[Rfam]
Shown here is a 75-nucleotide RNA from Acipenser ruthenus, a member of the family "Small nucleolar RNA SNORD63". The base pairs follow the family's consensus structure, which was predicted with PFOLD.
RNA sequence: GUGCUGUGAUGAUGCGAAUUCAACACAUCAUUCUGAUGUUGCUGUGAUGAGAGUACUUUCAAAGCACUGAGCACA
Numbered sequence: 001g002u003g004c005u006g007u008g009a010u011g012a013u014g015c016g017a018a019u020u021c022a023a024c025a026c027a028u029c030a031u032u033c034u035g036a037u038g039u040u041g042c043u044g045u046g047a048u049g050a051g052a053g054u055a056c057u058u059u060c061a062a063a064g065c066a067c068u069g070a071g072c073a074c075a
Stems, first nucleotide, its partner, number of pairs: 001074004
The literature on the family includes a 2002 paper in Mol Cell Biol by Galardi et al., "Purified box C/D snoRNPs are able to reproduce site-specific 2'-O-methylation of target RNA in vitro". Rfam describes the family as follows. snoRNA U63 is found in both humans and mice.